[Rfam]
RNA: MIR5272 microRNA precursor family
RNA sequence: UUGAGUGCAAAUUAGUUUAUGUUUGGAUACACUCGCUUAAAAGUGAUUCUUAUGGGUUGAUCUUGCUUGAAUAA
Numbered sequence: 001u002u003g004a005g006u007g008c009a010a011a012u013u014a015g016u017u018u019a020u021g022u023u024u025g026g027a028u029a030c031a032c033u034c035g036c037u038u039a040a041a042a043g044u045g046a047u048u049c050u051u052a053u054g055g056g057u058u059g060a061u062c063u064u065g066c067u068u069g070a071a072u073a074a
Stems, first nucleotide, its partner, number of pairs: 011061008021053002025049004030045004